[Rfam]
RNA sequence: UUGCAGCCAAUUAAGCUGACCAUGCUCUUUUGCCCAUAGGGCCUGAUGUGUAAUGGCUGCAAAUAGCAGCCUCCUCAGGAGUGUAUGAAAUCUGUUGCCUCUAUGGUUGCCCUAGGGGACCUUGGAGACAGCC
Numbered sequence: 001u002u003g004c005a006g007c008c009a010a011u012u013a014a015g016c017u018g019a020c021c022a023u024g025c026u027c028u029u030u031u032g033c034c035c036a037u038a039g040g041g042c043c044u045g046a047u048g049u050g051u052a053a054u055g056g057c058u059g060c061a062a063a064u065a066g067c068a069g070c071c072u073c074c075u076c077a078g079g080a081g082u083g084u085a086u087g088a089a090a091u092c093u094g095u096u097g098c099c100u101c102u103a104u105g106g107u108u109g110c111c112c113u114a115g116g117g118g119a120c121c122u123u124g125g126a127g128a129c130a131g132c133c
Stems, first nucleotide, its partner, number of pairs: 002052004019047001021045002025041004078120001089108004
Notes
A member of the RNA family "Small nucleolar RNA SNORA70" from Camelus dromedarius, 133 nucleotides long. On this family, see Charette and Gray, IUBMB Life 2000: "Pseudouridine in RNA: what, where, how, and why". Rfam's curators write: snoRNA U70 seems to be exclusive to mammals and is a member of the H/ACA class of snoRNA which contain H (ANANNA) and ACA box motifs. The source organism's lineage runs through Eukaryota, Eumetazoa, Deuterostomia, Tylopoda and Camelus. The match comes from Rfam's covariance-model search (103 bits). Pairs were carried over by alignment from the consensus structure, which was predicted with PFOLD.